Shown here is a 66-nucleotide RNA sequence from Kribbella voronezhensis, a member of the family "Actino-pnp RNA". A search with the family's covariance model found it, with a score of 63 bits. It is annotated as a cis-regulatory element.
RNA sequence: ACCGGUCCUCGGUAGUGGCCUUCGGGACAGCUCAGCUGCCCCCGCGGGCCUCGAUCGAAGACCGGC
Numbered sequence: 001a002c003c004g005g006u007c008c009u010c011g012g013u014a015g016u017g018g019c020c021u022u023c024g025g026g027a028c029a030g031c032u033c034a035g036c037u038g039c040c041c042c043c044g045c046g047g048g049c050c051u052c053g054a055u056c057g058a059a060g061a062c063c064g065g066c
Stems, first nucleotide, its partner, number of pairs: 002065006009058005017050005023044004028038003

NCBI's taxonomy places the organism under Bacteria, Bacillati, Propionibacteriales, Kribbellaceae, Kribbella. The family's consensus secondary structure is taken from published work.